A member of the RNA family "Bacillaceae-1 RNA" from Oceanobacillus bengalensis, 67 nucleotides long.

RNA sequence: CUUAGGGGAAGUUCGGUUAAAAACGCGACGUCCUAUCGCAACACCGAACUGACCUACAUCCUGUAGG
Numbered sequence: 001c002u003u004a005g006g007g008g009a010a011g012u013u014c015g016g017u018u019a020a021a022a023a024c025g026c027g028a029c030g031u032c033c034u035a036u037c038g039c040a041a042c043a044c045c046g047a048a049c050u051g052a053c054c055u056a057c058a059u060c061c062u063g064u065a066g067g
Stems, first nucleotide, its partner, number of pairs: 011049007025039004053067005
It scores 68 bits against the family's covariance model.
Rfam 15.1 lists 5,721 matches to the family in 247 species.